RNA sequence: GGUCACGAGCUCAGCCCGCACGCCUCCGGACGUGGGCUGACGGCAACCGCGUUCCCGACACGGUGCCUUCCGGAGAAGACCCGGGUCGACGUCGUCCGACGUCGGCCAAGCACGGGGC
Number, nucleotide and partner (000 for none) at each position: 001g081002g080003u079004c078005a000006c000007g000008a000009g041010c000011u040012c039013a038014g037015c036016c035017c000018g000019c000020a000021c032022g031023c000024c000025u000026c000027c000028g000029g000030a000031c022032g021033u000034g000035g016036g015037c014038u013039g012040a011041c009042g067043g066044c065045a000046a000047c063048c062049g061050c000051g059052u058053u000054c000055c000056c000057g000058a052059c051060a000061c049062g048063g047064u000065g044066c043067c042068u000069u000070c000071c000072g000073g000074a000075g000076a000077a000078g004079a003080c002081c001082c000083g000084g107085g106086u105087c104088g103089a102090c101091g100092u099093c098094g000095u000096c000097c000098g093099a092100c091101g090102u089103c088104g087105g086106c085107c084108a000109a000110g000111c000112a000113c000114g000115g000116g000117g000118c000

Shown here is a 118-nucleotide sequence from Xylanimonas protaetiae, a member of the family "SAM (S-adenosyl methionine) riboswitch aptamer". NCBI's taxonomy places the organism under Bacteria, Actinomycetota, Actinomycetes, Micrococcales, Xylanimonas. A search with the family's covariance model found it, with a score of 69 bits. On this family, see Weinberg et al., RNA 2008: "The aptamer core of SAM-IV riboswitches mimics the ligand-binding site of SAM-I riboswitches". Rfam links the family to the GO terms S-adenosylmethionine metabolic process and regulation of gene expression. The base pairs follow the family's consensus structure, which is taken from published work. Its Rfam clan is "SAM clan".